[Rfam]
RNA sequence: CUCCGUUUCCCUGAGGAGCCCUUUGAGCCUGGAGUGAAAAAAAAAAACAGGUCAAGAGGCGCCUGGGAACUGGAG
Number, nucleotide and partner (000 for none) at each position: 001c075002u074003c073004c072005g071006u000007u069008u068009c067010c066011c065012u000013g000014a064015g063016g062017a000018g060019c059020c058021c000022u056023u055024u054025g053026a052027g000028c051029c050030u049031g048032g000033a000034g000035u000036g000037a000038a000039a000040a000041a000042a000043a000044a000045a000046a000047a000048c031049a030050g029051g028052u026053c025054a024055a023056g022057a000058g020059g019060c018061g000062c016063c015064u014065g011066g010067g009068a008069a007070c000071u005072g004073g003074a002075g001
Rfam assigns this 75-nucleotide RNA from Mus musculus to the family "mir-351 microRNA precursor family".
The sequence is in the family's curated seed alignment.
Rfam 15.1 lists 3 matches to the family in 3 species.
NCBI's taxonomy places the organism under Eukaryota, Bilateria, Tetrapoda, Mus, Mus.